Bacterial small subunit ribosomal RNA: a 600-nucleotide part of an RNA from Culicoidibacter larvae. NCBI's taxonomy places the organism under Bacteria, Culicoidibacteria, Culicoidibacterales, Culicoidibacteraceae, Culicoidibacter. Rfam 15.1 lists 42,628 matches to the family in 10,626 species.
Nucleotides: 600
Stems, first nucleotide, its partner, number of pairs: 009025005027591004032587006039438006045431002047396001052394003056391003061131003066128002069125002072122002138349003148273007157266002162262007170204003179194006210233010239254006275321003282312003287309004292304003324346004328339004351372005374385004402428001404427003410423005441471004451462004475532001477527005485518001491512006535580005546575005556563002
Number, partner (000 for none) and nucleotide at each position: 001000u002000u003000u004000a005000u006000g007000g008000a009025g010024a011023g012022u013021u014000u015000g016000a017000u018000c019000c020000u021013g022012g023011c024010u025009c026000a027591g028590g029589a030588c031000g032587a033586a034585c035584g036583c037582u038000g039438g040437c041436g042435g043434c044433a045431u046430g047396c048000c049000u050000a051000a052394u053393a054392c055000a056391u057390g058389c059000a060000a061131g062130u063129c064000g065000a066128a067127c068000g069125a070124a071000c072122c073121g074000g075000c076000c077000u078000u079000a080000a081000a082000g083000a084000a085000g086000u087000g088000g089000a090000a091000g092000u093000a094000c095000u096000u097000g098000u099000a100000c101000a102000g103000a104000a105000g106000c107000g108000g109000a110000c111000a112000u113000a114000a115000g116000a117000u118000u119000u120000u121073c122072g123000g124070u125069u126000a127067g128066u129063g130062g131061c132000g133000a134000a135000c136000g137000g138349g139348u140347g141000a142000g143000u144000a145000a146000c147000a148273c149272g150271u151270a152269g153268g154267u155000a156000a157266c158265c159000u160000a161000c162262c163261u164260u165259c166258g167257a168256g169000a170204u171203g172202c173000g174000g175000a176000u177000a178000a179194g180193c181192a182191c183190u184189g185000g186000a187000a188000a189184c190183g191182g192181u193180g194179u195000c196000u197000a198000a199000u200000a201000g202172g203171c204170a205000a206000u207000a208000a209000g210233a211232u212231a213230u214229u215228u216227g217226a218225u219224g220000g221000c222000a223000u224219c225218a226217u227216c228215g229214g230213a231212u232211a233210u234000u235000g236000a237000a238000a239254g240253g241252g242251g243250c244249u245000u246000u247000c248000a249244a250243g251242c252241c253240u254239c255000a256168c257167u258166u259165g260164a261163a262162g263000a264000u265158g266157g267154a268153c269152c270151u271150g272149c273148g274000g275321u276320g277319c278000a279000u280000u281000a282312g283311c284310u285000a286000g287309a288308u289307g290306g291000c292304g293303g294302g295000g296000u297000a298000a299000c300000g301000g302294c303293c304292c305000a306290c307289c308288a309287u310284g311283g312282c313000a314000a315000c316000g317000a318000u319277g320276c321275a322000u323000a324346g325345c326344c327343g328339g329338c330337c331336u332000g333000a334000g335000a336331g337330g338329g339328u340000g341000a342000a343327c344326g345325g346324c347140c348139a349138c350000a351372c352371u353370g354369g355368g356000a357000c358000u359000g360000a361000g362000a363000c364000a365000c366000g367000g368355c369354c370353c371352a372351g373000a374385c375384u376383c377382c378000u379000a380000c381000g382377g383376g384375a385374g386000g387000c388000a389058g390057c391056a392054g393053u394052a395000g396047g397000g398000a399000a400000u401000u402428u403000u404427c405426g406425g407000c408000a409000a410423u411422g412421g413420g414419g415000g416000a417000a418000a419414c420413c421412c422411u423410g424000a425406c426405c427404g428402a429000g430046c431045a432000a433044u434043g435042c436041c437040g438039c439000g440000u441471g442470a443469g444468u445000g446000a447000a448000g449000a450000a451462g452461g453460u454459u455000u456000u457000c458000g459454g460453a461452u462451u463000g464000u465000a466000a467000a468444a469443c470442u471441c472000u473000g474000u475532u476000a477527u478526g479525a480524g481523g482000g483000a484000a485518g486000a487000a488000u489000a490000a491512g492511u493510u494509c495508u496507a497000u498000a499000g500000g501000a502000a503000a504000u505000g506000a507496u508495a509494g510493a511492a512491c513000g514000a515000u516000g517000a518485c519000g520000g521000u522000a523481c524480c525479u526478c527477a528000c529000c530000a531000g532475a533000a534000a535580g536579c537578c538577a539576c540000g541000g542000c543000u544000a545000a546575c547574u548573a549572c550571g551000u552000g553000c554000c555000a556563g557562c558000a559000g560000c561000c562557g563556c564000g565000g566000u567000a568000a569000u570000a571550c572549g573548u574547a575546g576539g577538u578537g579536g580535c581000a582037a583036g584035c585034g586033u587032u588030g589029u590028c591027c592000g593000g594000a595000a596000u597000u598000a599000u600000u